A member of the RNA family "c-di-GMP-I-GGC riboswitch aptamer" from Bacillus sp. MUM 116, 83 nucleotides long.
Clan: c-di-GMP_I riboswitch clan.
Pairs were carried over by alignment from the consensus structure, which is taken from published work.
The match comes from Rfam's covariance-model search (69 bits).
The literature on the family includes a 2009 paper in Nat Struct Mol Biol by Kulshina et al., "Recognition of the bacterial second messenger cyclic diguanylate by its cognate riboswitch".
Lineage of the source: Bacteria > Bacillota > Caryophanales > Bacillaceae > Bacillus.

RNA sequence: AUAGAAAACGGCAAACCUCUCGAAAGGGUGGGACGCAAAGCUACAGGUCUAAAGUGCUAACUAUGACGGCUGAGUUGCCUAAA
Numbered sequence: 001a002u003a004g005a006a007a008a009c010g011g012c013a014a015a016c017c018u019c020u021c022g023a024a025a026g027g028g029u030g031g032g033a034c035g036c037a038a039a040g041c042u043a044c045a046g047g048u049c050u051a052a053a054g055u056g057c058u059a060a061c062u063a064u065g066a067c068g069g070c071u072g073a074g075u076u077g078c079c080u081a082a083a
Stems, first nucleotide, its partner, number of pairs: 003080002011036002016031002019028003034069001039076004044072003047067003